[Rfam]
RNA: Bacterial RNase P class A
RNA sequence: AUGGCAAGGCAGAUAGUCGCCGGCAGGGUUAGCCCUGCGGGAGGAAAGUCCGGGCACCACAGAGCAGGGUGGUUCGUAACGCGAACCGGGGGUAACCCCAGUGCAAGUGCAACAGAGAGAAGACCGCCAGGCAUUGCGCCCGGUAAGGCUGAAAGGGUGGUGUAAGAGACCACCGGUUUCCUUGGUGACAAGGAAAGCCAGGUAAACCACACCCGGUGCAAAACCAUAUAGGAAGGCCUAUGGAGUGGCUCGCUCCGCCUUCGGGUAGGUUGCUUGAGCUGUCGGGCGACCGACAGCCUAGAUAAAUGGCUAUCACCUCGUUUAGCGAGGAACAGAACCCGGCUUACAGCCUUGCCAUGCUU
Numbered sequence: 001a002u003g004g005c006a007a008g009g010c011a012g013a014u015a016g017u018c019g020c021c022g023g024c025a026g027g028g029u030u031a032g033c034c035c036u037g038c039g040g041g042a043g044g045a046a047a048g049u050c051c052g053g054g055c056a057c058c059a060c061a062g063a064g065c066a067g068g069g070u071g072g073u074u075c076g077u078a079a080c081g082c083g084a085a086c087c088g089g090g091g092g093u094a095a096c097c098c099c100a101g102u103g104c105a106a107g108u109g110c111a112a113c114a115g116a117g118a119g120a121a122g123a124c125c126g127c128c129a130g131g132c133a134u135u136g137c138g139c140c141c142g143g144u145a146a147g148g149c150u151g152a153a154a155g156g157g158u159g160g161u162g163u164a165a166g167a168g169a170c171c172a173c174c175g176g177u178u179u180c181c182u183u184g185g186u187g188a189c190a191a192g193g194a195a196a197g198c199c200a201g202g203u204a205a206a207c208c209a210c211a212c213c214c215g216g217u218g219c220a221a222a223a224c225c226a227u228a229u230a231g232g233a234a235g236g237c238c239u240a241u242g243g244a245g246u247g248g249c250u251c252g253c254u255c256c257g258c259c260u261u262c263g264g265g266u267a268g269g270u271u272g273c274u275u276g277a278g279c280u281g282u283c284g285g286g287c288g289a290c291c292g293a294c295a296g297c298c299u300a301g302a303u304a305a306a307u308g309g310c311u312a313u314c315a316c317c318u319c320g321u322u323u324a325g326c327g328a329g330g331a332a333c334a335g336a337a338c339c340c341g342g343c344u345u346a347c348a349g350c351c352u353u354g355c356c357a358u359g360c361u362u
Stems, first nucleotide, its partner, number of pairs: 001358010012314007020041002023038006046345003050342005055218004062251004067214005072086005087101001088099004102209002107207002109203002124148002126144003130140003156174006176198001177196008222271004232262006242256005278297008